[Rfam]
RNA: mir-4650 microRNA precursor family
Organism: Macaca mulatta
RNA sequence: CUGUAGAGAUUAUCAGGCCUCAUUCUACCUUCCAAUCAUUCUACCUUCCAAGGCUCUGAGACUUGGAAGGUAGAAUGAGGCCUGACAAUAUCUGCAG
Numbered sequence: 001c002u003g004u005a006g007a008g009a010u011u012a013u014c015a016g017g018c019c020u021c022a023u024u025c026u027a028c029c030u031u032c033c034a035a036u037c038a039u040u041c042u043a044c045c046u047u048c049c050a051a052g053g054c055u056c057u058g059a060g061a062c063u064u065g066g067a068a069g070g071u072a073g074a075a076u077g078a079g080g081c082c083u084g085a086c087a088a089u090a091u092c093u094g095c096a097g
Stems, first nucleotide, its partner, number of pairs: 001097007009089002013085020